[Rfam]
RNA sequence: CUGAAGAAAGCUAAACCAUUCGUGAGGAUGGGGCGGAAAACCACGGGUCUUACACAAGACAGCCGGGUUGCCUGGA
Numbered sequence: 001c002u003g004a005a006g007a008a009a010g011c012u013a014a015a016c017c018a019u020u021c022g023u024g025a026g027g028a029u030g031g032g033g034c035g036g037a038a039a040a041c042c043a044c045g046g047g048u049c050u051u052a053c054a055c056a057a058g059a060c061a062g063c064c065g066g067g068u069u070g071c072c073u074g075g076a
Stems, first nucleotide, its partner, number of pairs: 003073001011036002016031006034062001039069004044065003047060003

The family of this 76-nucleotide RNA sequence from Candidatus Vecturithrix granuli is "c-di-GMP-I-GGC riboswitch aptamer". A search with the family's covariance model found it, with a score of 60 bits. A reference for the family is Weinberg et al. (2017), "Bioinformatic analysis of riboswitch structures uncovers variant classes with altered ligand specificity", Proc Natl Acad Sci U S A. The base pairs follow the family's consensus structure, which is taken from published work.